[Rfam]
RNA sequence: CUGCAAAUAUUCUUGCUGUUCUGAUUUUGUAAUAAUCAUGGUGGGCUAAACUUCACUACAUUAAGAUGAUGCAUGUUUCCAGACCUGAUUCUUUCCCUAGGUCUGCUUUUAUCGGUGCUUGUGAUAAAC
Numbered sequence: 001c002u003g004c005a006a007a008u009a010u011u012c013u014u015g016c017u018g019u020u021c022u023g024a025u026u027u028u029g030u031a032a033u034a035a036u037c038a039u040g041g042u043g044g045g046c047u048a049a050a051c052u053u054c055a056c057u058a059c060a061u062u063a064a065g066a067u068g069a070u071g072c073a074u075g076u077u078u079c080c081a082g083a084c085c086u087g088a089u090u091c092u093u094u095c096c097c098u099a100g101g102u103c104u105g106c107u108u109u110u111a112u113c114g115g116u117g118c119u120u121g122u123g124a125u126a127a128a129c
Stems, first nucleotide, its partner, number of pairs: 003056001016044005022038005066122004071118002080105008
Dot-bracket structure: ..(............(((((.(((((.......))))).)))))...........).........((((.((.......((((((((..........))))))))...........)))))).......
RNA: Small nucleolar RNA SNORA72